Histone 3' UTR stem-loop: a 45-nucleotide RNA sequence from Danio rerio. Taxonomically the source falls in Danio (Eukaryota, Vertebrata, Teleostomi, Actinopterygii). The mRNAs of metazoan histone genes lack a poly-A tail. 3' end processing occurs at a site between a highly conserved stem-loop (modelled by this family) and a purine rich region around 20 nts downstream (the histone downstream element, or HDE). Pairs were carried over by alignment from the consensus structure, which is taken from published work. It scores 41 bits against the family's covariance model.

[Rfam]
RNA sequence: CCAAAGGCUCUUUUAAGAGCCACACACUUUUUUAAAGAAAGGGCA
Numbered sequence: 001c002c003a004a005a006g007g008c009u010c011u012u013u014u015a016a017g018a019g020c021c022a023c024a025c026a027c028u029u030u031u032u033u034a035a036a037g038a039a040a041g042g043g044c045a
Stems, first nucleotide, its partner, number of pairs: 006021006